[Rfam]
RNA sequence: GGGGUGUGCUCAGAGCAGGGGGCUGAAGAAUGGCUCCUCUGUUUAUAACACAUGGAACAGGCAUCUGAGGUCACUGUGACAAGGGGCACAAAACUUGUGACUCCCUAAGAACAAAUGUCCUACAAGU
Numbered sequence: 001g002g003g004g005u006g007u008g009c010u011c012a013g014a015g016c017a018g019g020g021g022g023c024u025g026a027a028g029a030a031u032g033g034c035u036c037c038u039c040u041g042u043u044u045a046u047a048a049c050a051c052a053u054g055g056a057a058c059a060g061g062c063a064u065c066u067g068a069g070g071u072c073a074c075u076g077u078g079a080c081a082a083g084g085g086g087c088a089c090a091a092a093a094c095u096u097g098u099g100a101c102u103c104c105c106u107a108a109g110a111a112c113a114a115a116u117g118u119c120c121u122a123c124a125a126g127u
Stems, first nucleotide, its partner, number of pairs: 004053005013044009022034003069119003075113003080109001083103003087099005